[Rfam]
RNA sequence: GUAGUCGUAUUCACAUCAAUCCACAUGUGUUGAGGUGGAUUGGAGUGGAACUUAAACUAAAUUCUCCAAUCCACACCAAUACACAUGGAUUGAAGUAAAUACGACA
Numbered sequence: 001g002u003a004g005u006c007g008u009a010u011u012c013a014c015a016u017c018a019a020u021c022c023a024c025a026u027g028u029g030u031u032g033a034g035g036u037g038g039a040u041u042g043g044a045g046u047g048g049a050a051c052u053u054a055a056a057c058u059a060a061a062u063u064c065u066c067c068a069a070u071c072c073a074c075a076c077c078a079a080u081a082c083a084c085a086u087g088g089a090u091u092g093a094a095g096u097a098a099a100u101a102c103g104a105c106a
Base pairs, nucleotide, nucleotide: 004105005104006103007102008101009100010099011098013096014095016093017092018091019090020089021088022087023086026083027082028081029080030079031078032077035074036073037072038071039070040069041068042067043066
Dot-bracket structure: ...((((((((.((.((((((((..(((((((..(((((((((......................)))))))))..)))))))..)))))))).)).)))))))).